The family of this 72-nucleotide RNA from Methanobrevibacter filiformis is "tRNA". The family's consensus secondary structure is taken from published work. Gene Ontology term of the family: triplet codon-amino acid adaptor activity. Transfer RNA (tRNA) molecules are approximately 80 nucleotides in length. Their secondary structure includes four short double-helical elements and three loops (D, anti-codon, and T loops). Further hydrogen bonds mediate the characteristic L-shaped molecular structure. tRNAs have two regions of fundamental functional importance: the anti-codon, which is responsible for specific mRNA codon recognition, and the 3' end, to which the tRNAs corresponding amino acid is attached (by aminoacyl-tRNA synthetases). tRNAs cope with the degeneracy of the genetic code in two manners: having more than one tRNA (with a specific anti-codon) for a particular amino acid; and 'wobble' base-pairing, i.e. permitting non-standard base-pairing at the 3rd anti-codon position. The source organism's lineage runs through Archaea, Methanobacteriati, Methanobacteriota, Methanobacteriaceae and Methanobrevibacter.
RNA sequence: GGUUCCGUGGUCUAGGGGUAUGAUACCUCGCUUACAACGAGGGGAUCACGAGUUCGAAUCUCGUCGGAACCA
Numbered sequence: 001g002g003u004u005c006c007g008u009g010g011u012c013u014a015g016g017g018g019u020a021u022g023a024u025a026c027c028u029c030g031c032u033u034a035c036a037a038c039g040a041g042g043g044g045a046u047c048a049c050g051a052g053u054u055c056g057a058a059u060c061u062c063g064u065c066g067g068a069a070c071c072a
Stems, first nucleotide, its partner, number of pairs: 001071007010024003026042005048064005